The record is a 79-nucleotide sequence from Trema orientale, which matches "small nucleolar RNA snoR127" in Rfam. The organism belongs to Trema, within Eukaryota. The base pairs follow the family's consensus structure, which was predicted with RNAalifold. Rfam links the family to the GO terms RNA processing and nucleolus.
[Rfam]
RNA sequence: CUGGAAUGAUGCAAUUUAGCCAAAUCAGACAUUGAUGUGCUCCAAUUGGCAUACAUAUAUAUAUGGGCACCAAUCCAGU
Numbered sequence: 001c002u003g004g005a006a007u008g009a010u011g012c013a014a015u016u017u018a019g020c021c022a023a024a025u026c027a028g029a030c031a032u033u034g035a036u037g038u039g040c041u042c043c044a045a046u047u048g049g050c051a052u053a054c055a056u057a058u059a060u061a062u063a064u065g066g067g068c069a070c071c072a073a074u075c076c077a078g079u
Stems, first nucleotide, its partner, number of pairs: 001078004